[Rfam]
RNA sequence: GUUACAUACGAGCCGAGUCGCAGGCCCUCCGCGGGCCUGUGAGCGGGGGACCCACUUGGUCCUCGGACCGGGGGCGAAUCGUCGCUUGUUCGCGUCGUAGCGCGGCCGCCACGGCGGCCCUGCGAGCCCGUCAGCUCACCUCGCAGGCUCAUUGAGACAGGAGCA
Numbered sequence: 001g002u003u004a005c006a007u008a009c010g011a012g013c014c015g016a017g018u019c020g021c022a023g024g025c026c027c028u029c030c031g032c033g034g035g036c037c038u039g040u041g042a043g044c045g046g047g048g049g050a051c052c053c054a055c056u057u058g059g060u061c062c063u064c065g066g067a068c069c070g071g072g073g074g075c076g077a078a079u080c081g082u083c084g085c086u087u088g089u090u091c092g093c094g095u096c097g098u099a100g101c102g103c104g105g106c107c108g109c110c111a112c113g114g115c116g117g118c119c120c121u122g123c124g125a126g127c128c129c130g131u132c133a134g135c136u137c138a139c140c141u142c143g144c145a146g147g148c149u150c151a152u153u154g155a156g157a158c159a160g161g162a163g164c165a
Stems, first nucleotide, its partner, number of pairs: 011149004018042010043144006053071001072129003080097002083094001100123003
Record summary
A member of the RNA family "c-di-AMP riboswitch aptamer (ydaO/yuaA leader)" from Conexibacter arvalis, 165 nucleotides long. Lineage of the source: Bacteria > Bacillati > Actinomycetota > Thermoleophilia > Conexibacter.